[Rfam]
A member of the RNA family "Singlet oxygen resistance RNA X" from Actibacterium pelagium, 73 nucleotides long. A search with the family's covariance model found it, with a score of 66 bits. Rfam links the family to the GO term response to photooxidative stress. The family has 8 seed sequences and 528 matches in Rfam 15.1. By type it is a small RNA. Rfam's curators write: SorX (RSs2461)like SorY is a singlet oxygen induced sRNA that counteracts oxidative stress by targeting mRNA for a transporter in Rhodobacter. It also has an impact on resistance against organic hydroperoxides. It targets SD sequence of potA mRNA via an aSD sequence. The aSD sequence and some neighbouring nucleotides are identical to the one of SorY (targets takP mRNA).

RNA sequence: ACGCCCCCCAUGCCGGGGUAAUGGCAUGAACCUCCCUGUUGGACUGACCCGGUAUUUUUACCGGGUCUUUUUU
Numbered sequence: 001a002c003g004c005c006c007c008c009c010a011u012g013c014c015g016g017g018g019u020a021a022u023g024g025c026a027u028g029a030a031c032c033u034c035c036c037u038g039u040u041g042g043a044c045u046g047a048c049c050c051g052g053u054a055u056u057u058u059u060a061c062c063g064g065g066u067c068u069u070u071u072u073u
Base pairs, nucleotide, nucleotide: 009028010027011026012025013024014023046067047066048065049064050063051062052061053060
Dot-bracket structure: ........((((((........)))))).................((((((((......))))))))......